Background:
Shown here is a 91-nucleotide RNA sequence from Cephalotus follicularis, a member of the family "Small nucleolar RNA Z102/R77". A reference for the family is Chen et al. (2003), "The high diversity of snoRNAs in plants: identification and comparative study of 120 snoRNA genes from Oryza sativa", Nucleic Acids Res. The family's consensus secondary structure was predicted with PFOLD. Rfam 15.1 lists 1,346 matches to the family in 224 species. Clan: SNORD44 clan. Lineage of the source: Eukaryota > Magnoliopsida > eudicotyledons > Cephalotaceae > Cephalotus.

[Rfam]
RNA sequence: GAAUGAUGUGAUGAAGAGUUUUUCUUUGUGUAUUCGGUUUGAUUGCCGAAAUGAUGGCAUCGACCUUUGUAUUAGCUCUAUCUGAUCAUUC
Numbered sequence: 001g002a003a004u005g006a007u008g009u010g011a012u013g014a015a016g017a018g019u020u021u022u023u024c025u026u027u028g029u030g031u032a033u034u035c036g037g038u039u040u041g042a043u044u045g046c047c048g049a050a051a052u053g054a055u056g057g058c059a060u061c062g063a064c065c066u067u068u069g070u071a072u073u074a075g076c077u078c079u080a081u082c083u084g085a086u087c088a089u090u091c
Stems, first nucleotide, its partner, number of pairs: 002090004041061001044059004